[Rfam]
RNA sequence: UUGCGCUCUUAAACCCUCUUAGUGGCUUCCCUCUAAAUGCUUCCAAGAUACGAGUGAAUGGUAUAGAAAUUGCAGGGAAGUCCAAAGGGCUGUGCUGCUCCUGUGGCUCCGUCUUAUUUCAUACCUGCGACAUCU
Numbered sequence: 001u002u003g004c005g006c007u008c009u010u011a012a013a014c015c016c017u018c019u020u021a022g023u024g025g026c027u028u029c030c031c032u033c034u035a036a037a038u039g040c041u042u043c044c045a046a047g048a049u050a051c052g053a054g055u056g057a058a059u060g061g062u063a064u065a066g067a068a069a070u071u072g073c074a075g076g077g078a079a080g081u082c083c084a085a086a087g088g089g090c091u092g093u094g095c096u097g098c099u100c101c102u103g104u105g106g107c108u109c110c111g112u113c114u115u116a117u118u119u120c121a122u123a124c125c126u127g128c129g130a131c132a133u134c135u
Stems, first nucleotide, its partner, number of pairs: 004060002008054003017048004022043001024041003065135003070130007086115005092109001094107002098103001
This 135-nucleotide RNA from Callithrix jacchus belongs to the Rfam family "Small nucleolar RNA SNORA14". The source organism's lineage runs through Eukaryota, Bilateria, Eutheria, Callithrix and Callithrix. ACA14 is a member of the H/ACA class of snoRNA that guide the sites of modification of uridines to pseudouridines. Rfam links the family to the GO terms nucleolus and RNA processing. The match comes from Rfam's covariance-model search (125 bits). Rfam classes the family as an H/ACA-box small nucleolar RNA.